A member of the RNA family "Lysine riboswitch aptamer" from Actinobacillus indolicus, 187 nucleotides long. Taxonomically the source falls in Actinobacillus (Bacteria, Pseudomonadati, Gammaproteobacteria, Pasteurellales). A search with the family's covariance model found it, with a score of 65 bits.
RNA sequence: UAUAGCGGGAGAGGCGCAACACUCAGAUAGCUUAUUUUAGGGAACUAGACCGUUUGAAGAAUAAGUGACGGGAGUGAUUGCCGAGGUGUGAAUUCACUAGACUGGAAUGAUCAUCGGCUGUGUAGGUUGAAUCCCAUCAGCUGUCGUUUAAAACUCGGUUAGUUUUAAAUGGAGUGCUCUUAAAUUU
Numbered sequence: 001u002a003u004a005g006c007g008g009g010a011g012a013g014g015c016g017c018a019a020c021a022c023u024c025a026g027a028u029a030g031c032u033u034a035u036u037u038u039a040g041g042g043a044a045c046u047a048g049a050c051c052g053u054u055u056g057a058a059g060a061a062u063a064a065g066u067g068a069c070g071g072g073a074g075u076g077a078u079u080g081c082c083g084a085g086g087u088g089u090g091a092a093u094u095c096a097c098u099a100g101a102c103u104g105g106a107a108u109g110a111u112c113a114u115c116g117g118c119u120g121u122g123u124a125g126g127u128u129g130a131a132u133c134c135c136a137u138c139a140g141c142u143g144u145c146g147u148u149u150a151a152a153a154c155u156c157g158g159u160u161a162g163u164u165u166u167a168a169a170u171g172g173a174g175u176g177c178u179c180u181u182a183a184a185u186u187u
Base pairs, nucleotide, nucleotide: 007181008180009179010178011177016081017080018079019078021075022074023073024072030066031065032064033063034062035061036060037059085115086114087113088112092108093107094106095105116142117141118140119139122137123136125134126133144172145171146170147169148168149167150166151165152164153163